[Rfam]
RNA sequence: AGUAGAGUAGGUAUUGCGCGUUAAGUGUCAUGGGAUGGGAAGUUGUCCAUGAACGAAGGUGAUCCCGGGAUCGUCCACGAUGUAAUAUUGCAUCCGCUACU
Number, nucleotide and partner (000 for none) at each position: 001a101002g100003u099004a098005g097006a000007g000008u000009a000010g089011g088012u087013a086014u085015u084016g083017c082018g081019c079020g078021u077022u000023a000024a000025g054026u053027g000028u052029c051030a050031u049032g048033g047034g046035a000036u000037g000038g095039g094040a093041a000042g091043u000044u000045g000046u034047c033048c032049a031050u030051g029052a028053a026054c025055g000056a000057a000058g076059g075060u000061g000062a000063u000064c000065c000066c000067g000068g000069g000070a000071u000072c000073g000074u000075c059076c058077a021078c020079g019080a000081u018082g017083u016084a015085a014086u013087a012088u011089u010090g000091c042092a000093u040094c039095c038096g000097c005098u004099a003100c002101u001
Source information
The record is a 101-nucleotide RNA from Blautia sp. An46, which matches "THF (Tetrahydrofolate) riboswitch aptamer" in Rfam. The organism belongs to Blautia, within Bacteria. The family's consensus secondary structure is taken from published work. The family has 101 seed sequences and 747 matches in Rfam 15.1. Tetrahydrofolate (THF) riboswitch was first reported for Ames et al. as an RNA motif in 5' untranslated (5'-UTR)regions of folate transport and biosynthesis genes in Firmicutes genomes. On this family, see Ames et al., Chem Biol 2010: "A eubacterial riboswitch class that senses the coenzyme tetrahydrofolate".